[Rfam]
RNA sequence: AAAUACUUUCAGGGCGGGGUGAAAUUCCCCACCGGCGGUAACGUUUUAUACGAAGCCCGCGAGCCUUAGUGGCUGAUCUGGUGUGAUUCCAGAGCCGACAGUAUAGUCUGGAUGGGAGAAAGUAAAU
Dot-bracket structure: ...(((((((......(((.......))).[[((((((................[[))))..(((.....)))...(((((.......)))))]])).(((....]]))).......)))))))...